The family of this 86-nucleotide RNA from Butyrivibrio sp. XB500-5 is "ZMP/ZTP riboswitch aptamer (pfl RNA motif)". The base pairs follow the family's consensus structure, which is taken from published work.
RNA sequence: AUGUGUCCAUACAACUGGCGGAUAAGUGGGUAACCACGAGGGAGUAUGGAGAAUAAUAAUGUAUGUCGACCGCCUGGGCAACCGCU
Numbered sequence: 001a002u003g004u005g006u007c008c009a010u011a012c013a014a015c016u017g018g019c020g021g022a023u024a025a026g027u028g029g030g031u032a033a034c035c036a037c038g039a040g041g042g043a044g045u046a047u048g049g050a051g052a053a054u055a056a057u058a059a060u061g062u063a064u065g066u067c068g069a070c071c072g073c074c075u076g077g078g079c080a081a082c083c084g085c086u
Stems, first nucleotide, its partner, number of pairs: 004052001006050007015041002017074005026037004064080004